A member of the RNA family "Small nucleolar RNA SNORA61" from Tupaia belangeri, 132 nucleotides long. Pairs were carried over by alignment from the consensus structure, which was predicted with PFOLD. The family's RNA type in Rfam is H/ACA-box small nucleolar RNA. Rfam describes the family as follows. ACA61 is a member of the H/ACA class of snoRNA that guide the sites of modification of uridines to pseudouridines. Rfam 15.1 lists 881 matches to the family in 421 species.

RNA sequence: ACCCUCUGGUUCCCUUUUCUAUUGGAUCUGAACCCUGGUCUUGGUGGUGGUUGUAAAAGAAAGGAAAGCAAUACUAAAGCUGACCUCCGGUGGUGUAGUCUGGCUACACUGUGGGGCUGGUUUCAGACAAUC
Numbered sequence: 001a002c003c004c005u006c007u008g009g010u011u012c013c014c015u016u017u018u019c020u021a022u023u024g025g026a027u028c029u030g031a032a033c034c035c036u037g038g039u040c041u042u043g044g045u046g047g048u049g050g051u052u053g054u055a056a057a058a059g060a061a062a063g064g065a066a067a068g069c070a071a072u073a074c075u076a077a078a079g080c081u082g083a084c085c086u087c088c089g090g091u092g093g094u095g096u097a098g099u100c101u102g103g104c105u106a107c108a109c110u111g112u113g114g115g116g117c118u119g120g121u122u123u124c125a126g127a128c129a130a131u132c
Base pairs, nucleotide, nucleotide: 003063005061007059019050020049021048022047023046025040026039027038028037080120081119082118084116085115086114095109096108

The source organism's lineage runs through Eukaryota, Bilateria, Eutheria, Scandentia and Tupaia belangeri.